[Rfam]
Annotation:
A member of the RNA family "U1 spliceosomal RNA" from Callithrix jacchus, 166 nucleotides long. It is annotated as a spliceosomal small nuclear RNA. Pairs were carried over by alignment from the consensus structure, which is taken from published work.
RNA sequence: AAAUGGGUGUCUCAGGGGUGAUACCAUGAUCAUGAAGGUGGUUUUCCCAGGGUGAGGCUUAUCCAUUGCACUCCAGAUGUGCUGACCCCUGUGACUCCCCAAAUGUGGGAAACUCGACGACUGCAUGAUUUGUGAUAGUGGGGGACUGCGUUCGCGCUUUCCCCAG
Numbered sequence: 001a002a003a004u005g006g007g008u009g010u011c012u013c014a015g016g017g018g019u020g021a022u023a024c025c026a027u028g029a030u031c032a033u034g035a036a037g038g039u040g041g042u043u044u045u046c047c048c049a050g051g052g053u054g055a056g057g058c059u060u061a062u063c064c065a066u067u068g069c070a071c072u073c074c075a076g077a078u079g080u081g082c083u084g085a086c087c088c089c090u091g092u093g094a095c096u097c098c099c100c101a102a103a104u105g106u107g108g109g110a111a112a113c114u115c116g117a118c119g120a121c122u123g124c125a126u127g128a129u130u131u132g133u134g135a136u137a138g139u140g141g142g143g144g145a146c147u148g149c150g151u152u153c154g155c156g157c158u159u160u161c162c163c164c165a166g
Stems, first nucleotide, its partner, number of pairs: 013123003016048003020044002023042005049090004054086001056083003060079004092116003096110004139165005145160001148157003